Rfam assigns this 75-nucleotide sequence from Pediculus humanus to the family "mir-219 microRNA precursor family". The match comes from Rfam's covariance-model search (72 bits). Taxonomically the source falls in Pediculus humanus (Eukaryota, Mandibulata, Allotriocarida, Phthiraptera). Its family is annotated with RISC complex and miRNA-mediated post-transcriptional gene silencing in the Gene Ontology. A reference for the family is Lai et al. (2003), "Computational identification of Drosophila microRNA genes", Genome Biol.

RNA sequence: UCAGGCUUUGAUUGUCCAAACGCAAUUCUUGUUAUUUUAUUCAAUCAAGGACUGUGUGUGGACAUCAAUGCUUGU
Numbered sequence: 001u002c003a004g005g006c007u008u009u010g011a012u013u014g015u016c017c018a019a020a021c022g023c024a025a026u027u028c029u030u031g032u033u034a035u036u037u038u039a040u041u042c043a044a045u046c047a048a049g050g051a052c053u054g055u056g057u058g059u060g061g062a063c064a065u066c067a068a069u070g071c072u073u074g075u
Stems, first nucleotide, its partner, number of pairs: 002074005009067004014063005021056004026051006